[Rfam]
RNA sequence: ACAAGACGGUAAACUAGAAAUGCCGCUCUAAGUAGUAAUGCUUAGAUGAAAACUCCGUGAACUCGGUGGAACCCCAAACCAAACUAGCAGUUGUGGAUGGUGGGCAAUACCGAGCCAAGCCUAGUGAAUUGUAAGCAAGCUGUAGCUAGGAAGGUGUAACGAUCAGGUAGUGAGGAUACAUAACCAAUAAUCUACCCACGAGCGCGGGGCAUCCUACAGGGAUGAAGAUAUGAUCUGAACUUUAUGGAAACAUAAAG
Dot-bracket structure: ....(.(((((.........))))).)...(((......)))..........[[[[.[[...((((((....((((........................))))...))))))((....(......(...(........)..).....)....))...(.(((((.....................................]].]]]]..((((...))))........)))))).....(((((....)))))..
The family of this 257-nucleotide RNA from Oceanobacillus sp. J11TS1 is "Group I catalytic intron". The family has 12 seed sequences and 5,602 matches in Rfam 15.1. About the family: Group I catalytic introns are large self-splicing ribozymes. They catalyse their own excision from mRNA, tRNA and rRNA precursors in a wide range of organisms. The core secondary structure consists of 9 paired regions (P1-P9). These fold to essentially two domains - the P4-P6 domain (formed from the stacking of P5, P4, P6 and P6a helices) and the P3-P9 domain (formed from the P8, P3, P7 and P9 helices). The secondary structure mark-up for this family represents only this conserved core. Group I catalytic introns often have long ORFs inserted in loop regions. The window size for this search is chosen to minimise search time and catch the small examples. A larger window size will find more matches. A reference for the family is Cate et al. (1996), "Crystal structure of a group I ribozyme domain: principles of RNA packing", Science. Its family is annotated with Group I intron splicing in the Gene Ontology.